[Rfam]
RNA sequence: UUGUGUGUGAGGAGUAAGAUUAAUAAGGAAGCAGCCGGAGGGUCGAAACAUGGCAAGACUCCUUGCGGACUUCCUUA
Numbered sequence: 001u002u003g004u005g006u007g008u009g010a011g012g013a014g015u016a017a018g019a020u021u022a023a024u025a026a027g028g029a030a031g032c033a034g035c036c037g038g039a040g041g042g043u044c045g046a047a048a049c050a051u052g053g054c055a056a057g058a059c060u061c062c063u064u065g066c067g068g069a070c071u072u073c074c075u076u077a
Stems, first nucleotide, its partner, number of pairs: 026075005035068002039063003042059003
RNA: Cyano-1 RNA
Organism: Synechocystis sp. PCC 6803